[Rfam]
RNA: TPP riboswitch aptamer (THI element)
RNA sequence: UUUAUAGUUCAGGGGAGCUGGAAAUCGGCCGGCUGAGAUUGUGUCCCGCAAGACACUGACCCUUUAACCUGAUCUGGGUAAUGCCAGCGUAGGAAGAAUGUUUAGCAUGGAC
Numbered sequence: 001u002u003u004a005u006a007g008u009u010c011a012g013g014g015g016a017g018c019u020g021g022a023a024a025u026c027g028g029c030c031g032g033c034u035g036a037g038a039u040u041g042u043g044u045c046c047c048g049c050a051a052g053a054c055a056c057u058g059a060c061c062c063u064u065u066a067a068c069c070u071g072a073u074c075u076g077g078g079u080a081a082u083g084c085c086a087g088c089g090u091a092g093g094a095a096g097a098a099u100g101u102u103u104a105g106c107a108u109g110g111a112c
Base pairs, nucleotide, nucleotide: 007099008098009097010096011063012062013061014060016057017033018032019031020030021029041056042055043054044053068093069092070091071090074087075086076085077084